[Rfam]
RNA: mir-492 microRNA precursor family
RNA sequence: ACCAUUGAGGACCUGCGGGACAAGAUUCUUGGUGCCACUCUUGAGAACUCCAGGACUGUCCUGCAGAUUGGCAAU
Numbered sequence: 001a002c003c004a005u006u007g008a009g010g011a012c013c014u015g016c017g018g019g020a021c022a023a024g025a026u027u028c029u030u031g032g033u034g035c036c037a038c039u040c041u042u043g044a045g046a047a048c049u050c051c052a053g054g055a056c057u058g059u060c061c062u063g064c065a066g067a068u069u070g071g072c073a074a075u
Base pairs, nucleotide, nucleotide: 010069011068013066014065015064016063017062018061019060020059021058022057027055028054029053030052031051032050034048